[Rfam]
RNA sequence: UGCAUGCAUGACUGUAAAUCGCUUUGGAUGAAAGCGUCUGCUAAAUGACAUAUG
Numbered sequence: 001u002g003c004a005u006g007c008a009u010g011a012c013u014g015u016a017a018a019u020c021g022c023u024u025u026g027g028a029u030g031a032a033a034g035c036g037u038c039u040g041c042u043a044a045a046u047g048a049c050a051u052a053u054g
Stems, first nucleotide, its partner, number of pairs: 013043001014041003020036006
Dot-bracket structure: ............((((...((((((.....))))))..))).)...........